[Rfam]
RNA sequence: UCGAAUAAUGAGCCGAAUUUCUUUAGGAAAACGGGGGAACCAUGAGUUUAAGGGGUGAAUUCAGCAGGCCGUGAGCCGCUGAUAGGGUGCCUGUACAUCCGAAUCCGUCAGCUAACCUCGUAGGCUUGAAUUACAGGAACC
Numbered sequence: 001u002c003g004a005a006u007a008a009u010g011a012g013c014c015g016a017a018u019u020u021c022u023u024u025a026g027g028a029a030a031a032c033g034g035g036g037g038a039a040c041c042a043u044g045a046g047u048u049u050a051a052g053g054g055g056u057g058a059a060u061u062c063a064g065c066a067g068g069c070c071g072u073g074a075g076c077c078g079c080u081g082a083u084a085g086g087g088u089g090c091c092u093g094u095a096c097a098u099c100c101g102a103a104u105c106c107g108u109c110a111g112c113u114a115a116c117c118u119c120g121u122a123g124g125c126u127u128g129a130a131u132u133a134c135a136g137g138a139a140c141c
Stems, first nucleotide, its partner, number of pairs: 011126004018030003031121006041052001053106003061082004085100004
A member of the RNA family "c-di-AMP riboswitch aptamer (ydaO/yuaA leader)" from Paenibacillus sp. PvR098, 141 nucleotides long.